[Rfam]
RNA sequence: AAACAGGUGUGAGACUGGAUCCUGGGAAACAGGCUGGGAUGGUCCCGUAAGUUCGGGCGGUGCCCUUCGGGGGUAACCCCACCGCCGACGUAUCACCUCACACGCUGUU
Number, nucleotide and partner (000 for none) at each position: 001a000002a000003a000004c107005a106006g105007g000008u104009g103010u102011g101012a000013g099014a098015c000016u095017g094018g093019a000020u000021c033022c032023u031024g030025g000026g000027a000028a000029a000030c024031a023032g022033g021034c000035u000036g046037g045038g044039a043040u000041g000042g000043u039044c038045c037046c036047g000048u000049a000050a000051g091052u090053u000054c000055g000056g086057g085058c084059g083060g082061u081062g000063c000064c000065c000066u000067u000068c000069g000070g000071g000072g000073g000074u000075a000076a000077c000078c000079c000080c000081a061082c060083c059084g058085c057086c056087g000088a000089c000090g052091u051092a000093u018094c017095a016096c000097c000098u014099c013100a000101c011102a010103c009104g008105c006106u005107g004108u000109u000
The family of this 109-nucleotide sequence from Umbravirus nicotianae is "Luteovirus cap-independent translation element (BTE)". It scores 54 bits against the family's covariance model. By type it is a cis-regulatory element. A reference for the family is Shen and Miller (2004), "Subgenomic RNA as a riboregulator: negative regulation of RNA replication by Barley yellow dwarf virus subgenomic RNA 2", Virology.